[Rfam]
RNA sequence: ACAAAAUAUUGAUAAGCUGUUCGUAUAUCCUCAAAGAUAAGGUUUGGGGGUUUCUACAGGGGACCGUAAAUUCCUGGCUACGAAUAGGGUGCUUUUGCAU
Numbered sequence: 001a002c003a004a005a006a007u008a009u010u011g012a013u014a015a016g017c018u019g020u021u022c023g024u025a026u027a028u029c030c031u032c033a034a035a036g037a038u039a040a041g042g043u044u045u046g047g048g049g050g051u052u053u054c055u056a057c058a059g060g061g062g063a064c065c066g067u068a069a070a071u072u073c074c075u076g077g078c079u080a081c082g083a084a085u086a087g088g089g090u091g092c093u094u095u096u097g098c099a100u
Stems, first nucleotide, its partner, number of pairs: 018086008029049007059075005